[Rfam]
RNA sequence: CUCUUAUGAAGAGCGGUGGAGGGACUGGCCCUGUGAAACCCGGCAACCAUUCAACACUUGUUGAAAAGGUGCUAAUUCCUGCAAAGCGUCAUGCUUUGGAAAAUAAGAG
Number, nucleotide and partner (000 for none) at each position: 001c109002u108003c107004u106005u105006a104007u103008g000009a000010a000011g000012a000013g041014c000015g040016g039017u038018g000019g000020a000021g031022g030023g029024a000025c081026u000027g079028g078029c023030c022031c021032u000033g000034u000035g000036a000037a000038a017039c016040c015041c013042g073043g072044c071045a070046a000047c069048c068049a000050u065051u064052c063053a062054a000055c000056a000057c000058u000059u000060g000061u000062u053063g052064a051065a050066a000067a000068g048069g047070u045071g044072c043073u042074a000075a000076u000077u101078c028079c027080u000081g025082c098083a097084a096085a095086g094087c093088g000089u000090c000091a000092u000093g087094c086095u085096u084097u083098g082099g000100a000101a077102a000103a007104u006105a005106a004107g003108a002109g001